[Rfam]
This 82-nucleotide RNA from Mesobacillus subterraneus belongs to the Rfam family "c-di-GMP-I-GGC riboswitch aptamer". Its family is annotated with cyclic-di-GMP binding in the Gene Ontology. The literature on the family includes a 2017 paper in Proc Natl Acad Sci U S A by Weinberg et al., "Bioinformatic analysis of riboswitch structures uncovers variant classes with altered ligand specificity".
RNA sequence: UCCGAUAAAGGCAAACUCAGGGGAACCUGAGGACGCAAAACUACAGGGGCUAAAGUCUUGACCAGCCAGCCAGUUGCCGAAG
Numbered sequence: 001u002c003c004g005a006u007a008a009a010g011g012c013a014a015a016c017u018c019a020g021g022g023g024a025a026c027c028u029g030a031g032g033a034c035g036c037a038a039a040a041c042u043a044c045a046g047g048g049g050c051u052a053a054a055g056u057c058u059u060g061a062c063c064a065g066c067c068a069g070c071c072a073g074u075u076g077c078c079g080a081a082g
Base pairs, nucleotide, nucleotide: 001082003079004078011036012035016031017030018029019028020027021026034069039075040074041073042072046071047070048067049066050065

The family's consensus secondary structure is taken from published work.